A member of the RNA family "mir-139 microRNA precursor family" from Leptobrachium leishanense, 68 nucleotides long. The match comes from Rfam's covariance-model search (85 bits). On this family, see Murchison et al., Genome Res 2008: "Conservation of small RNA pathways in platypus".

[Rfam]
RNA sequence: GUGUAUUCUACAGUGCAUGUGUCUCCAGUGAUUCUAUGCGACUGGAGAUACUGCUCUGUUGGAAUAAC
Numbered sequence: 001g002u003g004u005a006u007u008c009u010a011c012a013g014u015g016c017a018u019g020u021g022u023c024u025c026c027a028g029u030g031a032u033u034c035u036a037u038g039c040g041a042c043u044g045g046a047g048a049u050a051c052u053g054c055u056c057u058g059u060u061g062g063a064a065u066a067a068c
Stems, first nucleotide, its partner, number of pairs: 006064004010059004015054002019051011